[Rfam]
RNA sequence: UCCCACCCCCUCCUCCAGGACCUGGAAACGAGGGACUCUGUGAGGAAGAGGACGCCAAAGGAUGGUCGACCGCUAACAAAGACAAAAGGAAUUAAACUGAUCACCGGGAACCACGAAUCGAAGGUAAGUGACGGCGUCCGAAAUGGGACAAGAAUUAAGUCAGCAUCAAAUAUAUGUAGGACAAUUAAAAGAGGCUUUAAAGAUAUGAGGAGUAAAGGUUAAAGGUAAUGACUUGUUUAAAUUUUUUGAUUUUGUAAAAGAUACUUGCCCUU
Numbered sequence: 001u002c003c004c005a006c007c008c009c010c011u012c013c014u015c016c017a018g019g020a021c022c023u024g025g026a027a028a029c030g031a032g033g034g035a036c037u038c039u040g041u042g043a044g045g046a047a048g049a050g051g052a053c054g055c056c057a058a059a060g061g062a063u064g065g066u067c068g069a070c071c072g073c074u075a076a077c078a079a080a081g082a083c084a085a086a087a088g089g090a091a092u093u094a095a096a097c098u099g100a101u102c103a104c105c106g107g108g109a110a111c112c113a114c115g116a117a118u119c120g121a122a123g124g125u126a127a128g129u130g131a132c133g134g135c136g137u138c139c140g141a142a143a144u145g146g147g148a149c150a151a152g153a154a155u156u157a158a159g160u161c162a163g164c165a166u167c168a169a170a171u172a173u174a175u176g177u178a179g180g181a182c183a184a185u186u187a188a189a190a191g192a193g194g195c196u197u198u199a200a201a202g203a204u205a206u207g208a209g210g211a212g213u214a215a216a217g218g219u220u221a222a223a224g225g226u227a228a229u230g231a232c233u234u235g236u237u238u239a240a241a242u243u244u245u246u247u248g249a250u251u252u253u254g255u256a257a258a259a260g261a262u263a264c265u266u267g268c269c270c271u272u
Stems, first nucleotide, its partner, number of pairs: 002034003039051001041049001091129003096125002102120001134149001137147004156199003159195003206248008216234006257272002260269001262267001
The record is a 272-nucleotide sequence from Macaca fascicularis, which matches "Mason-Pfizer monkey virus packaging signal" in Rfam.
The organism belongs to Macaca, within Eukaryota.